Rfam assigns this 94-nucleotide RNA from Firmicutes bacterium CAG:102 to the family "pan motif". The family's consensus secondary structure is taken from published work. Rfam classes the family as a cis-regulatory element.

RNA sequence: CGGAUGGCAUUCUGAAAGAAGCUAUACUGCAAAUUUUAUAUAUUUUAUUUUUUUGAUUCGCCGGAUGGCUGUAUCCUCGGAACGGCACAAAUGG
Numbered sequence: 001c002g003g004a005u006g007g008c009a010u011u012c013u014g015a016a017a018g019a020a021g022c023u024a025u026a027c028u029g030c031a032a033a034u035u036u037u038a039u040a041u042a043u044u045u046u047a048u049u050u051u052u053u054u055g056a057u058u059c060g061c062c063g064g065a066u067g068g069c070u071g072u073a074u075c076c077u078c079g080g081a082a083c084g085g086c087a088c089a090a091a092u093g094g
Stems, first nucleotide, its partner, number of pairs: 001029003004025005010020002066089002068086005074081002